This 91-nucleotide sequence from Drosophila simulans belongs to the Rfam family "mir-975 microRNA precursor family". Its family is annotated with miRNA-mediated post-transcriptional gene silencing and RISC complex in the Gene Ontology. It is one of the family's seed sequences.
RNA sequence: UUGAGUUUUUGAUUUUAAACACUGCCUACAUCCUGUAUGUGUUUUGCAUCCGAUACAGUUGUAGGAGUCGUUUGCAGUCAGAGAUUUCACA
Numbered sequence: 001u002u003g004a005g006u007u008u009u010u011g012a013u014u015u016u017a018a019a020c021a022c023u024g025c026c027u028a029c030a031u032c033c034u035g036u037a038u039g040u041g042u043u044u045u046g047c048a049u050c051c052g053a054u055a056c057a058g059u060u061g062u063a064g065g066a067g068u069c070g071u072u073u074g075c076a077g078u079c080a081g082a083g084a085u086u087u088c089a090c091a
Stems, first nucleotide, its partner, number of pairs: 003087012016074005021068003025065006032058001034057005039049004